[Rfam]
RNA: RAGATH-18 RNA
RNA sequence: CCUGUGGAGCGUCAUAAAAAACGCAAGUAGUGUCGACAAAAAGCGGACGCGCUGAAGCAGGAA
Numbered sequence: 001c002c003u004g005u006g007g008a009g010c011g012u013c014a015u016a017a018a019a020a021a022c023g024c025a026a027g028u029a030g031u032g033u034c035g036a037c038a039a040a041a042a043g044c045g046g047a048c049g050c051g052c053u054g055a056a057g058c059a060g061g062a063a
Base pairs, nucleotide, nucleotide: 001061002060003059004058005057009050010049011048012047013046022045023044024043030037031036